[Rfam]
RNA sequence: CUUAAACUAAAUAAAAGCACCUGUAUAACCUCAAGAAUAUGGCUUGAGGGUAUCUACCAGGAACCGUAAAAAAAUCCUGACUACAGAAAAUGAACCAUUCGUU
Number, nucleotide and partner (000 for none) at each position: 001c000002u000003u000004a000005a000006a000007c000008u000009a000010a000011a000012u000013a000014a000015a000016a000017g000018c000019a000020c000021c086022u085023g084024u083025a082026u000027a000028a000029c049030c048031u047032c046033a045034a044035g043036a000037a000038u000039a000040u000041g000042g000043c035044u034045u033046g032047a031048g030049g029050g000051u000052a000053u000054c000055u000056a000057c000058c079059a078060g077061g076062a075063a000064c000065c000066g000067u000068a000069a000070a000071a000072a000073a000074a000075u062076c061077c060078u059079g058080a000081c000082u025083a024084c023085a022086g021087a000088a000089a000090a000091u000092g000093a000094a000095c000096c000097a000098u000099u000100c000101g000102u000103u000